RNA sequence: GCUACUGUAAGAUAUGUUUGAUAUUCUUGGUUGUAGAUUUAAAAACACCCAGGAGUCAAACAUAUUAUUACAGUGGU
Numbered sequence: 001g002c003u004a005c006u007g008u009a010a011g012a013u014a015u016g017u018u019u020g021a022u023a024u025u026c027u028u029g030g031u032u033g034u035a036g037a038u039u040u041a042a043a044a045a046c047a048c049c050c051a052g053g054a055g056u057c058a059a060a061c062a063u064a065u066u067a068u069u070a071c072a073g074u075g076g077u
Stems, first nucleotide, its partner, number of pairs: 005073005011066012024053002029050002032047002
RNA: mir-190 microRNA precursor family
Organism: Oryctes borbonicus